A member of the RNA family "Bacterial RNase P class A" from a Paenibacillaceae bacterium, 413 nucleotides long. It is annotated as a ribozyme. Lineage of the source: Bacteria > Bacillati > Bacilli > Caryophanales > Paenibacillaceae. The base pairs follow the family's consensus structure, which is taken from published work.
RNA sequence: AAAGCUUGACAGACAAUCGCUGGCAGCUUCAGGCUGCGAGAGGAAAGUCCGGGCUCCAUAGGGCAGGAUGCUGGAUAACGUCCAGUCGGCGUGAGCCGAAGGAUAGUGCCACAGAAACGGACCGCCGAUGGCUUGCUCUCAUAAGGAGCAAGAUCAGGCAAGGGUGGAACCGUGGUGUAAGAGACCACGAGCGGCGUUGGUGACAACGCGGCUGGUAAACCCCAUCUGGAGCAAGACCGAGAGGAUGCAGAAGGCUUCGAGCCUUCACCCUGGCACCGGGGCGCAUCCGGGUUGGUCGCUUGAACCUGUUAGCAAUGACAGGUCUAGAUAGAUGAUUGUCGCUUUAUGGUGGGAGGGUCGUUCCCGUUAUGACCACCGGAAGUACAGAACCCGGCUUACGGCAAGCUUUCCGU
Numbered sequence: 001a002a003a004g005c006u007u008g009a010c011a012g013a014c015a016a017u018c019g020c021u022g023g024c025a026g027c028u029u030c031a032g033g034c035u036g037c038g039a040g041a042g043g044a045a046a047g048u049c050c051g052g053g054c055u056c057c058a059u060a061g062g063g064c065a066g067g068a069u070g071c072u073g074g075a076u077a078a079c080g081u082c083c084a085g086u087c088g089g090c091g092u093g094a095g096c097c098g099a100a101g102g103a104u105a106g107u108g109c110c111a112c113a114g115a116a117a118c119g120g121a122c123c124g125c126c127g128a129u130g131g132c133u134u135g136c137u138c139u140c141a142u143a144a145g146g147a148g149c150a151a152g153a154u155c156a157g158g159c160a161a162g163g164g165u166g167g168a169a170c171c172g173u174g175g176u177g178u179a180a181g182a183g184a185c186c187a188c189g190a191g192c193g194g195c196g197u198u199g200g201u202g203a204c205a206a207c208g209c210g211g212c213u214g215g216u217a218a219a220c221c222c223c224a225u226c227u228g229g230a231g232c233a234a235g236a237c238c239g240a241g242a243g244g245a246u247g248c249a250g251a252a253g254g255c256u257u258c259g260a261g262c263c264u265u266c267a268c269c270c271u272g273g274c275a276c277c278g279g280g281g282c283g284c285a286u287c288c289g290g291g292u293u294g295g296u297c298g299c300u301u302g303a304a305c306c307u308g309u310u311a312g313c314a315a316u317g318a319c320a321g322g323u324c325u326a327g328a329u330a331g332a333u334g335a336u337u338g339u340c341g342c343u344u345u346a347u348g349g350u351g352g353g354a355g356g357g358u359c360g361u362u363c364c365c366g367u368u369a370u371g372a373c374c375a376c377c378g379g380a381a382g383u384a385c386a387g388a389a390c391c392c393g394g395c396u397u398a399c400g401g402c403a404a405g406c407u408u409u410c411c412g413u
Base pairs, nucleotide, nucleotide: 001409002408003407004406005405006404007403008402010400012340013339014338015337016336017335018334020040021039023037024036025035026034027033028032045397046396047395049394050393051392052391053390054231055230056229057228061276063274064273066227067226068225069224070223071085072084073083074082075081086100087098088097089096090095101222102221106220107219108216109215110214122163123162124159125158126157129156130155131154133152134151171189172188173187174186175185176184191212192211194209195208196207197206198205199204235297236296237295238294243288244287245286246285247284248283268280269279270278304323305322306321307320308319309318310317311316